[Rfam]
RNA sequence: AUGUCUCGUGUCUGUGGUUGAAAGUUGAGGCUAGUCGCAGGCAAAGCAAUCCACGUAAACUUCACUAAAAUCGGUGGAGCGAUCAUAGUGCGGCCUAGAAGUAAGUCCAGCCGGCGCAAGUCGAGAGAAGGAGUCGUGAUAUCAAAGCCAAACUUCCAGCUGGCGAGUGUGGGGUUAAAGACCAGGUCAGACGAGAUGU
Numbered sequence: 001a002u003g004u005c006u007c008g009u010g011u012c013u014g015u016g017g018u019u020g021a022a023a024g025u026u027g028a029g030g031c032u033a034g035u036c037g038c039a040g041g042c043a044a045a046g047c048a049a050u051c052c053a054c055g056u057a058a059a060c061u062u063c064a065c066u067a068a069a070a071u072c073g074g075u076g077g078a079g080c081g082a083u084c085a086u087a088g089u090g091c092g093g094c095c096u097a098g099a100a101g102u103a104a105g106u107c108c109a110g111c112c113g114g115c116g117c118a119a120g121u122c123g124a125g126a127g128a129a130g131g132a133g134u135c136g137u138g139a140u141a142u143c144a145a146a147g148c149c150a151a152a153c154u155u156c157c158a159g160c161u162g163g164c165g166a167g168u169g170u171g172g173g174g175u176u177a178a179a180g181a182c183c184a185g186g187u188c189a190g191a192c193g194a195g196a197u198g199u
Stems, first nucleotide, its partner, number of pairs: 001199009012190003015184005028170001030168001031041001034094006050088001055083001061077002086177001107163005112123004127156004136148002
This 199-nucleotide RNA sequence belongs to the Rfam family "raiA RNA".
It is one of the family's seed sequences.
The base pairs follow the family's consensus structure, which is taken from published work.